Shown here is a 372-nucleotide sequence from Sphingobacterium cellulitidis, a member of the family "Bacterial RNase P class A". Rfam classes the family as a ribozyme. NCBI's taxonomy places the organism under Bacteria, Pseudomonadati, Bacteroidota, Sphingobacteriales, Sphingobacterium.
RNA sequence: AAGCAAACUGGUUCUAUCGCUGCAUUUUAAAAAUGAAGAGGAAAGUCCGGGCAACACAGAGCAAUACGCUUCCUAACGGGAAGGCUGAUUUGAAAAAAUUAGACAGCAAGUGCCACAGAAAAUAUACCGCCUUUCGGGGUAAGGGUGAAAACGUGAGGUAAGAGCUCACGGAUUUGCAUGGCAACAUGCAUCUCGGUAAACCUCGUAUGUUGAAAGACCAAAUAGGUUGCAAGAAUUGAAAGCUGCUCGUUUUCUGCCUUGAGCAAUUGCAAUGGGUAGGUUGAUGGAGUUUGCAUGUGAAUGCAAACCUAGAUAAAUGAUAGAAAUUCUUAUUUUAGAAUACAGAACCCGGCUUACAAAGUUUGCUUCUUU
Numbered sequence: 001a002a003g004c005a006a007a008c009u010g011g012u013u014c015u016a017u018c019g020c021u022g023c024a025u026u027u028u029a030a031a032a033a034u035g036a037a038g039a040g041g042a043a044a045g046u047c048c049g050g051g052c053a054a055c056a057c058a059g060a061g062c063a064a065u066a067c068g069c070u071u072c073c074u075a076a077c078g079g080g081a082a083g084g085c086u087g088a089u090u091u092g093a094a095a096a097a098a099u100u101a102g103a104c105a106g107c108a109a110g111u112g113c114c115a116c117a118g119a120a121a122a123u124a125u126a127c128c129g130c131c132u133u134u135c136g137g138g139g140u141a142a143g144g145g146u147g148a149a150a151a152c153g154u155g156a157g158g159u160a161a162g163a164g165c166u167c168a169c170g171g172a173u174u175u176g177c178a179u180g181g182c183a184a185c186a187u188g189c190a191u192c193u194c195g196g197u198a199a200a201c202c203u204c205g206u207a208u209g210u211u212g213a214a215a216g217a218c219c220a221a222a223u224a225g226g227u228u229g230c231a232a233g234a235a236u237u238g239a240a241a242g243c244u245g246c247u248c249g250u251u252u253u254c255u256g257c258c259u260u261g262a263g264c265a266a267u268u269g270c271a272a273u274g275g276g277u278a279g280g281u282u283g284a285u286g287g288a289g290u291u292u293g294c295a296u297g298u299g300a301a302u303g304c305a306a307a308c309c310u311a312g313a314u315a316a317a318u319g320a321u322a323g324a325a326a327u328u329c330u331u332a333u334u335u336u337a338g339a340a341u342a343c344a345g346a347a348c349c350c351g352g353c354u355u356a357c358a359a360a361g362u363u364u365g366c367u368u369c370u371u372u
Stems, first nucleotide, its partner, number of pairs: 001368009011357001012325007020038002023035005043355003047352005052212004059260003064208005069083005084104001085102007105203002110201002112197003127144002129140004152170006175190006216282004226273006251266002254263002289308008